[Rfam]
RNA sequence: CAUAGGGUUUACACCCCAUGCUUUAUGCUUUCGCUGCUCCGCAGCU
Numbered sequence: 001c002a003u004a005g006g007g008u009u010u011a012c013a014c015c016c017c018a019u020g021c022u023u024u025a026u027g028c029u030u031u032c033g034c035u036g037c038u039c040c041g042c043a044g045c046u
Stems, first nucleotide, its partner, number of pairs: 001020003005016004033045005

Rfam assigns this 46-nucleotide RNA sequence from Stieleria varia to the family "Acido-Lenti-1 RNA". The match comes from Rfam's covariance-model search (40 bits). The organism belongs to Stieleria, within Bacteria.